[Rfam]
The family of this 177-nucleotide RNA from Exobacillus caeni is "Lysine riboswitch aptamer".
It scores 121 bits against the family's covariance model.
Pairs were carried over by alignment from the consensus structure, which is taken from published work.

Nucleotides: 177
Stems, first nucleotide, its partner, number of pairs: 006172001009169003016083005023076002032068007087116012117143002120140008145162006
Number, partner (000 for none) and nucleotide at each position: 001000a002000a003000u004000g005000g006172g007000g008000a009169u010168a011167g012000a013000g014000g015000c016083g017082c018081a019080a020079a021000g022000a023076g024075a025000a026000a027000a028000a029000g030000u031000a032068a033067a034066a035065u036064a037063u038062u039000g040000g041000a042000g043000c044000u045000u046000a047000a048000u049000g050000g051000a052000a053000a054000g055000c056000g057000a058000u059000g060000a061000a062038a063037a064036u065035a066034u067033u068032u069000g070000a071000a072000a073000g074000g075024u076023c077000a078000a079020u080019u081018u082017g083016c084000c085000g086000a087116a088115g089114c090113g091112a092111u093110c094109a095108u096107g097106g098105a099000a100000u101000c102000c103000a104000u105098u106097c107096u108095a109094u110093g111092g112091u113090u114089g115088c116087u117143g118142g119000g120140c121139u122138g123137u124136u125135g126134c127133c128000g129000a130000a131000c132000a133127g134126g135125c136124a137123g138122c139121a140120g141000a142118c143117u144000g145162u146161c147160a148159c149158c150157g151000a152000a153000a154000u155000a156000g157150c158149g159148g160147u161146g162145g163000a164000g165000u166000g167011c168010u169009a170000a171000a172006c173000c174000a175000a176000c177000u